[Rfam]
RNA sequence: CCGCACCCAUGUGACUGGCGCAUACGGAUAGAGCACUAUCGGGGAGCAUGGGGUCGCUAGCCGCCGCGCGCCUGGGCAUUACCU
Numbered sequence: 001c002c003g004c005a006c007c008c009a010u011g012u013g014a015c016u017g018g019c020g021c022a023u024a025c026g027g028a029u030a031g032a033g034c035a036c037u038a039u040c041g042g043g044g045a046g047c048a049u050g051g052g053g054u055c056g057c058u059a060g061c062c063g064c065c066g067c068g069c070g071c072c073u074g075g076g077c078a079u080u081a082c083c084u
Stems, first nucleotide, its partner, number of pairs: 003055001006052007015043002017072005028039004063077003
RNA: ZMP/ZTP riboswitch aptamer (pfl RNA motif)